The family of this 114-nucleotide RNA sequence from Cynoglossus semilaevis is "Potassium channel RNA editing signal". Taxonomically the source falls in Cynoglossus (Eukaryota, Chordata, Actinopteri, Neoteleostei). For this family Rfam cites "Control of human potassium channel inactivation by editing of a small mRNA hairpin" (Bhalla et al., Nat Struct Mol Biol, 2004).

RNA sequence: GUCGGCUAUGGUGACAUGUAUCCCACCACCAUUUGGGGGAAAGUUGUGGGAUCGUUAUGCGCCAUCGCUGGAGUACUGACCAUAGCCUUGCCGGUUCCUGUGAUCGUGUCCAAU
Numbered sequence: 001g002u003c004g005g006c007u008a009u010g011g012u013g014a015c016a017u018g019u020a021u022c023c024c025a026c027c028a029c030c031a032u033u034u035g036g037g038g039g040a041a042a043g044u045u046g047u048g049g050g051a052u053c054g055u056u057a058u059g060c061g062c063c064a065u066c067g068c069u070g071g072a073g074u075a076c077u078g079a080c081c082a083u084a085g086c087c088u089u090g091c092c093g094g095u096u097c098c099u100g101u102g103a104u105c106g107u108g109u110c111c112a113a114u
Base pairs, nucleotide, nucleotide: 001114002113004111005110007108008107009106010105011104014101015100016099018097020095021094037077038076040074049063050062